[Rfam]
RNA sequence: CAAAGAUGAUGACAGUCUAAGUACGCGACAUCGUGUCGCAACGACUGCCUGACCCGCAUCGUGCGGG
Numbered sequence: 001c002a003a004a005g006a007u008g009a010u011g012a013c014a015g016u017c018u019a020a021g022u023a024c025g026c027g028a029c030a031u032c033g034u035g036u037c038g039c040a041a042c043g044a045c046u047g048c049c050u051g052a053c054c055c056g057c058a059u060c061g062u063g064c065g066g067g
Base pairs, nucleotide, nucleotide: 011049013047014046015045016044017043025039026038027037028036029035053067054066055065056064057063
Shown here is a 67-nucleotide sequence from Psychrobacillus psychrotolerans, a member of the family "Bacillaceae-1 RNA". The family's consensus secondary structure is taken from published work. Rfam classes the family as a small RNA.